Rfam assigns this 62-nucleotide sequence from Nomascus leucogenys to the family "U7 small nuclear RNA".
The base pairs follow the family's consensus structure, which was predicted with PFOLD.
Taxonomically the source falls in Nomascus (Eukaryota, Amniota, Mammalia, Catarrhini).
Rfam's curators write: Animal histone pre-mRNAs are spliced by a different mechanism than nuclear pre-mRNAs and self-splicing introns. This processing involves the U7 snRNP, which contains only one RNA species: U7. The 5' end of U7 RNA is thought to base-pair to a conserved spacer element downstream of the cleavage site in histone pre-mRNA. This family contains a number of annotated U7 pseudogenes.
[Rfam]
RNA sequence: UAGUGUUACAGUUGUUUUAGAACUUGUCUAUCAGGCUUCCCAAUUUUUGCUGAAAAGCCCUU
Numbered sequence: 001u002a003g004u005g006u007u008a009c010a011g012u013u014g015u016u017u018u019a020g021a022a023c024u025u026g027u028c029u030a031u032c033a034g035g036c037u038u039c040c041c042a043a044u045u046u047u048u049g050c051u052g053a054a055a056a057g058c059c060c061u062u
Stems, first nucleotide, its partner, number of pairs: 034059005041052002044049001